[Rfam]
RNA sequence: AACUAAUAUCAGAAAGGAAUGAUGGGUGGACAAUGCGUAACUAAUCUUAUUUUCCAACGUUUGAAAUAGCAUAUUUCAAAUCACACGAAAUAGGAUUAGUCUGCCCACUUCAAUAACCAAAAUUAAAAAGCUAUAGAUUGACAUAGCUUAUUUGAUAUUUGCAACGGUAUGACUAAUCCUUCCAAAUCAAUUGGGAGGAUUUUUUU
Numbered sequence: 001a002a003c004u005a006a007u008a009u010c011a012g013a014a015a016g017g018a019a020u021g022a023u024g025g026g027u028g029g030a031c032a033a034u035g036c037g038u039a040a041c042u043a044a045u046c047u048u049a050u051u052u053u054c055c056a057a058c059g060u061u062u063g064a065a066a067u068a069g070c071a072u073a074u075u076u077c078a079a080a081u082c083a084c085a086c087g088a089a090a091u092a093g094g095a096u097u098a099g100u101c102u103g104c105c106c107a108c109u110u111c112a113a114u115a116a117c118c119a120a121a122a123u124u125a126a127a128a129a130g131c132u133a134u135a136g137a138u139u140g141a142c143a144u145a146g147c148u149u150a151u152u153u154g155a156u157a158u159u160u161g162c163a164a165c166g167g168u169a170u171g172a173c174u175a176a177u178c179c180u181u182c183c184a185a186a187u188c189a190a191u192u193g194g195g196a197g198g199a200u201u202u203u204u205u206u
Base pairs, nucleotide, nucleotide: 017111018110023107024106025105026104029101030100031099042098043097044096045095046094047093048092049091050090051089052088053087059081060080061079062078063077064076065075066074067073123155125152130147131146132145133144134143175201176200177199178198179197180196181195182194183193184192185191
Dot-bracket structure: ................((....((((..(((..........((((((((((((.....(((((((((.....))))))))).....)))))))))))))))..))))..))...........(.(....(((((........)))))....)..)...................(((((((((((.....))))))))))).....

Bacillus sRNA ncr1575: a 206-nucleotide RNA sequence from Sediminibacillus albus.
It scores 149 bits against the family's covariance model.
The literature on the family includes a 2010 paper in Nucleic Acids Res by Irnov et al., "Identification of regulatory RNAs in Bacillus subtilis".
Lineage of the source: Bacteria > Bacillati > Bacilli > Caryophanales > Sediminibacillus.
By type it is a small RNA.